[Rfam]
RNA sequence: CAAAAGGGCCUUUGCAUUCAUCGCACAUGUGUUCCCUGUGGACCCAUGCGGAAUCGCCAUCAAGAGAUUUCGGAGGCAUAAUAUUUGGAUAUAGAGGCAGCUAGCGUCAUAUAUCGCUGGCGCCCAU
Dot-bracket structure: .......((((((((.......)))((((.((((.....)))).))))(((((((..........))))))))))))..................(((.(((((((........))))))))))...

Rfam assigns this 127-nucleotide RNA sequence from Actinia tenebrosa to the family "U11 spliceosomal RNA". The family's consensus secondary structure is taken from published work. Its family is annotated with U11 snRNP, mRNA 5'-splice site recognition and pre-mRNA 5'-splice site binding in the Gene Ontology. The organism belongs to Actinia, within Eukaryota.